Nucleotides: 101
Base pairs, nucleotide, nucleotide: 018087019086020085021084022083023082024081025080029048030047031046032045033044034043058077059076060075061074062073063072
Number, partner (000 for none) and nucleotide at each position: 001000u002000g003000u004000g005000g006000u007000a008000a009000a010000a011000u012000c013000u014000u015000u016000a017000c018087g019086u020085u021084u022083c023082g024081u025080a026000u027000a028000a029048u030047u031046c032045g033044c034043g035000u036000g037000g038000u039000a040000u041000g042000g043034u044033g045032c046031g047030a048029a049000u050000g051000u052000c053000u054000c055000u056000a057000c058077c059076c060075c061074a062073g063072a064000c065000c066000g067000a068000u069000a070000c071000c072063u073062c074061u075060g076059g077058g078000a079000c080025u081024a082023c083022g084021g085020a086019a087018c088000u089000g090000a091000u092000c093000a094000u095000u096000u097000u098000a099000u100000u101000a
Notes
The record is a 101-nucleotide RNA from [Clostridium] innocuum, which matches "Purine riboswitch aptamer" in Rfam. Taxonomically the source falls in [Clostridium] innocuum (Bacteria, Bacillati, Bacillota, Clostridium). On this family, see Mandal et al., Cell 2003: "Riboswitches Control Fundamental Biochemical Pathways in Bacillus subtilis and Other Bacteria". A search with the family's covariance model found it, with a score of 47 bits.